This 140-nucleotide sequence from Prolemur simus belongs to the Rfam family "U4 spliceosomal RNA". Taxonomically the source falls in Prolemur (Eukaryota, Opisthokonta, Euteleostomi, Eutheria). The family's consensus secondary structure is taken from published work. The family's RNA type in Rfam is spliceosomal small nuclear RNA. The family has 177 seed sequences and 32,178 matches in Rfam 15.1. Rfam's curators write: U4 small nuclear RNA (U4 snRNA) is a component of the major U2-dependent spliceosome. On this family, see Plaschka et al., Nature 2017: "Structure of a pre-catalytic spliceosome". Clan: U4 clan. It scores 92 bits against the family's covariance model.

RNA sequence: AGCUUUGCACAGUGGCAGUAUCGUAGCCAAUGAGGUUUAUCUGAGGCACAAUUGUUGCUAAUUGAAACCUUUCCCAAUACCCUACCAUGAUGACUUGCAAUAUAAUUGGCAUUGGCAAUUUUUGGUGGUUCCUACGGGGA
Numbered sequence: 001a002g003c004u005u006u007g008c009a010c011a012g013u014g015g016c017a018g019u020a021u022c023g024u025a026g027c028c029a030a031u032g033a034g035g036u037u038u039a040u041c042u043g044a045g046g047c048a049c050a051a052u053u054g055u056u057g058c059u060a061a062u063u064g065a066a067a068c069c070u071u072u073c074c075c076a077a078u079a080c081c082c083u084a085c086c087a088u089g090a091u092g093a094c095u096u097g098c099a100a101u102a103u104a105a106u107u108g109g110c111a112u113u114g115g116c117a118a119u120u121u122u123u124g125g126u127g128g129u130u131c132c133u134a135c136g137g138g139g140a
Stems, first nucleotide, its partner, number of pairs: 020052002023049002026047003034042002085115002087112003091108003095104001129140004